[Rfam]
Record summary:
This 267-nucleotide RNA sequence from Molossus molossus belongs to the Rfam family "Mason-Pfizer monkey virus packaging signal". The match comes from Rfam's covariance-model search (115 bits). The family has 9 seed sequences and 2,921 matches in Rfam 15.1. The family's consensus secondary structure was predicted with PFOLD.

RNA sequence: UGGCGCCCAACGUGGGGCUCGAGCACGGGGGAUCCAGUGAAGGACGCAGUUCGAGUGCCCGGCAGAAAGGAAAAGAAAAGAGGGAACGACGUGGGAACCUGCUGCGUCUGCACCCCUCGGGUAAGUGAACGGCGAUUAUGGGUCAAGCAUUGAGCCAAGAUAAGAUGUUCGUUGAAGGACUAGGAAAGGCUAUCAAGGCACGAGGAGUAAAGAUAAAAAUUAAGCAUUUGUGUCAGUAUUUUGAUUAUAUUAAGGAAGUUUGCCCUU
Dot-bracket structure: .....(((...(((.........)))..)))....(.((.......)).)...............................(((..(..(((((.......)))))...)...)).)........(((.(..((....)).))))......(.(((...............................)))..).......(((((.((..((((...........))))......)).)))))........((((........))))